Annotation:
The family of this 163-nucleotide RNA is "FuFi-1 RNA". By type it is a small RNA. Pairs were carried over by alignment from the consensus structure, which is taken from published work.
[Rfam]
RNA sequence: UUCGUUAGCUAAUGGGUACGGCGGAACUAUAACCGCUUAAGUAACGAACCACCUCAAGAACAUAGUGUCGCAUGCUAUGUGAGUAGUGAGAGCCUCUGCAAGAUGGAAGCGCAAUAAAAAUAUAGAGAGUUUCUGCUGGAGAUGCGACUUCCAGCGGAAAUCU
Numbered sequence: 001u002u003c004g005u006u007a008g009c010u011a012a013u014g015g016g017u018a019c020g021g022c023g024g025a026a027c028u029a030u031a032a033c034c035g036c037u038u039a040a041g042u043a044a045c046g047a048a049c050c051a052c053c054u055c056a057a058g059a060a061c062a063u064a065g066u067g068u069c070g071c072a073u074g075c076u077a078u079g080u081g082a083g084u085a086g087u088g089a090g091a092g093c094c095u096c097u098g099c100a101a102g103a104u105g106g107a108a109g110c111g112c113a114a115u116a117a118a119a120a121u122a123u124a125g126a127g128a129g130u131u132u133c134u135g136c137u138g139g140a141g142a143u144g145c146g147a148c149u150u151c152c153a154g155c156g157g158a159a160a161u162c163u
Stems, first nucleotide, its partner, number of pairs: 001048007020037005027125005049106003053102002061079006067148007081096003129161013